This 255-nucleotide RNA sequence from Ipomoea nil belongs to the Rfam family "RNase MRP". Rfam classes the family as a ribozyme. The source organism's lineage runs through Eukaryota, Tracheophyta, Spermatophyta, Solanales and Ipomoea. It scores 83 bits against the family's covariance model.
RNA sequence: UGACCGCGGGGCGACGUGAGCGGGUUGGGUCAUUCCGUUACGGUUUGGCCAGGCCCAGGAAAGUCCCCGGGCCGCUACUGCAGAGAUGCAGGCUCGGAAACGAGUUCGCUUCACGGGCUGGGUUCUAUCUCCUUGCGGGAUGGGCUGAGACGAGUGUGGAGCCUAAUGGACUCUAGCCGGAAGCGCCUUGGCCAGUAGACAGUUAUUCACGUGGUCCAUCUGGACUAACUGAACGGGGCUUACGACCCUGCGGUC
Numbered sequence: 001u002g003a004c005c006g007c008g009g010g011g012c013g014a015c016g017u018g019a020g021c022g023g024g025u026u027g028g029g030u031c032a033u034u035c036c037g038u039u040a041c042g043g044u045u046u047g048g049c050c051a052g053g054c055c056c057a058g059g060a061a062a063g064u065c066c067c068c069g070g071g072c073c074g075c076u077a078c079u080g081c082a083g084a085g086a087u088g089c090a091g092g093c094u095c096g097g098a099a100a101c102g103a104g105u106u107c108g109c110u111u112c113a114c115g116g117g118c119u120g121g122g123u124u125c126u127a128u129c130u131c132c133u134u135g136c137g138g139g140a141u142g143g144g145c146u147g148a149g150a151c152g153a154g155u156g157u158g159g160a161g162c163c164u165a166a167u168g169g170a171c172u173c174u175a176g177c178c179g180g181a182a183g184c185g186c187c188u189u190g191g192c193c194a195g196u197a198g199a200c201a202g203u204u205a206u207u208c209a210c211g212u213g214g215u216c217c218a219u220c221u222g223g224a225c226u227a228a229c230u231g232a233a234c235g236g237g238g239c240u241u242a243c244g245a246c247c248c249u250g251c252g253g254u255c
Stems, first nucleotide, its partner, number of pairs: 002255010014212006026057005061241003065238004079090004091106006108184003116178006130170003142164004152157001214225004